[Rfam]
RNA: Group II catalytic intron D1-D4-1
Organism: Gemmata obscuriglobus
Nucleotides: 124
Base pairs, nucleotide, nucleotide: 001028002027004023006021008019009018010017011016041048042047050124051123052122061115062114063113064112065111066110
Number, partner (000 for none) and nucleotide at each position: 001028c002027a003000c004023c005000g006021c007000g008019a009018c010017c011016g012000g013000u014000a015000a016011c017010g018009g019008u020000g021006g022000g023004g024000g025000g026000a027002u028001g029000g030000u031000u032000c033000g034000g035000g036000a037000g038000a039000a040000g041048u042047c043000a044000g045000c046000c047042g048041a049000g050124g051123c052122c053000g054000u055000a056000g057000u058000a059000a060000c061115u062114c063113g064112u065111c066110c067000g068000u069000c070000c071000g072000g073000u074000g075000g076000a077000g078000c079000g080000a081000u082000c083000c084000a085000c086000g087000g088000g089000g090000g091000a092000g093000g094000c095000a096000c097000c098000c099000a100000c101000a102000c103000c104000u105000c106000g107000u108000a109000a110066g111065g112064a113063c114062g115061a116000a117000c118000g119000a120000a121000g122052g123051g124050c